[Rfam]
RNA sequence: ACCGCUGAGCCAUCUCUCCAGCCCUUUUUUUGACUUUUACUUGUAGUUUUUAGAAAAGUAUGGUCUAGGGGGCUGGAGAGAUGGCUCAGCGGU
Numbered sequence: 001a002c003c004g005c006u007g008a009g010c011c012a013u014c015u016c017u018c019c020a021g022c023c024c025u026u027u028u029u030u031u032g033a034c035u036u037u038u039a040c041u042u043g044u045a046g047u048u049u050u051u052a053g054a055a056a057a058g059u060a061u062g063g064u065c066u067a068g069g070g071g072g073c074u075g076g077a078g079a080g081a082u083g084g085c086u087c088a089g090c091g092g093u
Base pairs, nucleotide, nucleotide: 002092003091004090005089006088007087008086009085010084011083012082013081014080015079016078017077018076019075020074021073022072023071024070025069026068027067
This 93-nucleotide sequence from Rattus norvegicus belongs to the Rfam family "mir-3473 microRNA precursor family".
The organism belongs to Rattus, within Eukaryota.